[Rfam]
RNA sequence: GCUGUUUUCGGGUGGAUGACUCUGCAAUUUUAUUAGUGAUGGAAAAACUUCAAUAAAAAUUGCACGGUAUCCAUCUGUAAUCCGCU
Numbered sequence: 001g002c003u004g005u006u007u008u009c010g011g012g013u014g015g016a017u018g019a020c021u022c023u024g025c026a027a028u029u030u031u032a033u034u035a036g037u038g039a040u041g042g043a044a045a046a047a048c049u050u051c052a053a054u055a056a057a058a059a060u061u062g063c064a065c066g067g068u069a070u071c072c073a074u075c076u077g078u079a080a081u082c083c084g085c086u
Base pairs, nucleotide, nucleotide: 009077010076011075012074013073014072015071016070017069019068020067023064024063025062026061027060028059029058030057031056
This 86-nucleotide RNA sequence from Danio rerio belongs to the Rfam family "mir-363 microRNA precursor family".
Lineage of the source: Eukaryota > Eumetazoa > Bilateria > Teleostei > Danio.
Its family is annotated with miRNA-mediated post-transcriptional gene silencing and RISC complex in the Gene Ontology.